[Rfam]
RNA sequence: ACGAGGCGAUGACCUAUGAAUUGACAGCCAGUGAUCAUAGCAUCUGCCUGUCAGUUCUGUAGGGCACUGCUGCGU
Numbered sequence: 001a002c003g004a005g006g007c008g009a010u011g012a013c014c015u016a017u018g019a020a021u022u023g024a025c026a027g028c029c030a031g032u033g034a035u036c037a038u039a040g041c042a043u044c045u046g047c048c049u050g051u052c053a054g055u056u057c058u059g060u061a062g063g064g065c066a067c068u069g070c071u072g073c074g075u
Base pairs, nucleotide, nucleotide: 001075002074003073005071006070007069008068010066011065013063014062015061016060018057019056020055021054022053023052024051025050026049027048029046030045031044
mir-192/215 microRNA precursor family: a 75-nucleotide sequence from Scophthalmus maximus.
Gene Ontology terms of the family: miRNA-mediated post-transcriptional gene silencing and RISC complex.
On this family, see Ambros, Cell 2001: "microRNAs: tiny regulators with great potential".
The organism belongs to Scophthalmus, within Eukaryota.
Rfam 15.1 lists 810 matches to the family in 628 species.
This family represents the human microRNA (miRNA) precursors mir-192 and mir-215. Animal miRNAs are transcribed as ~70nt precursors and subsequently processed by the Dicer enzyme to give a ~22nt product.